[Rfam]
RNA sequence: UUAUAACCAAUGUGGGGCUCCAGCACGGGGGAUCCAGUGAAGGACGCCGUUCGAGUGGCCGGCAGAAAGGAAAGCAAAGGAAAAGAAAAUAAAAGAAAAGAGGGAACGACGUGGGAACCUGCUACGUCUGCACCCCUCGGGUAAGUGAACGGCGAUUAUGGGUCAAGCAUUGAGCCAAGAUAAGAUGUUCGUUGAAGGACUAAAAAAGGCUAUCAAGGCAUGAGGAGUAAAGGUGAAAAUUAAGCAUUUGUGUCAGUAUUUUGAUUAUAUUAAAGAAGUUGUCCUU
Numbered sequence: 001u002u003a004u005a006a007c008c009a010a011u012g013u014g015g016g017g018c019u020c021c022a023g024c025a026c027g028g029g030g031g032a033u034c035c036a037g038u039g040a041a042g043g044a045c046g047c048c049g050u051u052c053g054a055g056u057g058g059c060c061g062g063c064a065g066a067a068a069g070g071a072a073a074g075c076a077a078a079g080g081a082a083a084a085g086a087a088a089a090u091a092a093a094a095g096a097a098a099a100g101a102g103g104g105a106a107c108g109a110c111g112u113g114g115g116a117a118c119c120u121g122c123u124a125c126g127u128c129u130g131c132a133c134c135c136c137u138c139g140g141g142u143a144a145g146u147g148a149a150c151g152g153c154g155a156u157u158a159u160g161g162g163u164c165a166a167g168c169a170u171u172g173a174g175c176c177a178a179g180a181u182a183a184g185a186u187g188u189u190c191g192u193u194g195a196a197g198g199a200c201u202a203a204a205a206a207a208g209g210c211u212a213u214c215a216a217g218g219c220a221u222g223a224g225g226a227g228u229a230a231a232g233g234u235g236a237a238a239a240u241u242a243a244g245c246a247u248u249u250g251u252g253u254c255a256g257u258a259u260u261u262u263g264a265u266u267a268u269a270u271u272a273a274a275g276a277a278g279u280u281g282u283c284c285u286u
Stems, first nucleotide, its partner, number of pairs: 007030002012026003035057002038054001100138002102135002107130001110126005146165003150162001153160002172213001174210003221263005227257002231249005273286003277282001
RNA: Mason-Pfizer monkey virus packaging signal